[Rfam]
RNA sequence: UAUAAGGAGCAAUAAACUCUUUCUUCUUCUAUCAAGAGGGAUUAUUGCUCCUUUUUUGGA
Numbered sequence: 001u002a003u004a005a006g007g008a009g010c011a012a013u014a015a016a017c018u019c020u021u022u023c024u025u026c027u028u029c030u031a032u033c034a035a036g037a038g039g040g041a042u043u044a045u046u047g048c049u050c051c052u053u054u055u056u057u058g059g060a
Stems, first nucleotide, its partner, number of pairs: 002055001004053012017040003022037004